Small nucleolar RNA SNORA71: a 134-nucleotide sequence from Tupaia belangeri. Its family is annotated with nucleolus and RNA processing in the Gene Ontology. It scores 143 bits against the family's covariance model. The base pairs follow the family's consensus structure, which was predicted with PFOLD. A reference for the family is Ganot et al. (1997), "The family of box ACA small nucleolar RNAs is defined by an evolutionarily conserved secondary structure and ubiquitous sequence elements essential for RNA accumulation", Genes Dev. Lineage of the source: Eukaryota > Metazoa > Sarcopterygii > Eutheria > Tupaia belangeri. The family has 40 seed sequences and 1,805 matches in Rfam 15.1. Rfam's curators write: The members of this family belong to the H/ACA class of snoRNAs which bind a number of proteins (including dyskerin, Gar1p and Nop10p) to form snoRNP complexes.
[Rfam]
RNA sequence: CCCUGCAUUCGAAAGUGAUCGUGGGCUGCCUGUGCCCUGGUCAUUGAUAGUGCAGGGAGAGAAAUCGCUGAAAGACGUUUCCCCGUGUUUGGAGGGUCUACACCGUCCCUUUCAAACCCUGGAGCUUUCCCACA
Numbered sequence: 001c002c003c004u005g006c007a008u009u010c011g012a013a014a015g016u017g018a019u020c021g022u023g024g025g026c027u028g029c030c031u032g033u034g035c036c037c038u039g040g041u042c043a044u045u046g047a048u049a050g051u052g053c054a055g056g057g058a059g060a061g062a063a064a065u066c067g068c069u070g071a072a073a074g075a076c077g078u079u080u081c082c083c084c085g086u087g088u089u090u091g092g093a094g095g096g097u098c099u100a101c102a103c104c105g106u107c108c109c110u111u112u113c114a115a116a117c118c119c120u121g122g123a124g125c126u127u128u129c130c131c132a133c134a
Stems, first nucleotide, its partner, number of pairs: 001057009014045008023037004067131001070129005087117005092111005